[Rfam]
RNA: U12 minor spliceosomal RNA
RNA sequence: AUGCUUUAAAUUUAGGAGUAAGGAAAACAAUGAGUGGGGGUGACACCCCGGUCCUCACUGUAAAUGUGAAUUUUCAUGUGUGUGCAGGUUGCCCCUGGUUGCCCUGCUUACUUUGCAGGAUGCCAGGUGCUGUGAUAUGCCA
Numbered sequence: 001a002u003g004c005u006u007u008a009a010a011u012u013u014a015g016g017a018g019u020a021a022g023g024a025a026a027a028c029a030a031u032g033a034g035u036g037g038g039g040g041u042g043a044c045a046c047c048c049c050g051g052u053c054c055u056c057a058c059u060g061u062a063a064a065u066g067u068g069a070a071u072u073u074u075c076a077u078g079u080g081u082g083u084g085c086a087g088g089u090u091g092c093c094c095c096u097g098g099u100u101g102c103c104c105u106g107c108u109u110a111c112u113u114u115g116c117a118g119g120a121u122g123c124c125a126g127g128u129g130c131u132g133u134g135a136u137a138u139g140c141c142a
Stems, first nucleotide, its partner, number of pairs: 004023005032053002035050005055069004082140002086138001088136005094127002098124001100122002103119005